[Rfam]
RNA sequence: UUACUACUAAACCCUAUCUCCACCUCCACGUGGUGACCGCUGGGAGCACUUUCGUAACGUAAAGCUGCAGACGGAGAAGG
Numbered sequence: 001u002u003a004c005u006a007c008u009a010a011a012c013c014c015u016a017u018c019u020c021c022a023c024c025u026c027c028a029c030g031u032g033g034u035g036a037c038c039g040c041u042g043g044g045a046g047c048a049c050u051u052u053c054g055u056a057a058c059g060u061a062a063a064g065c066u067g068c069a070g071a072c073g074g075a076g077a078a079g080g
Stems, first nucleotide, its partner, number of pairs: 013080003017076001019074002022034003045066003050062002053059002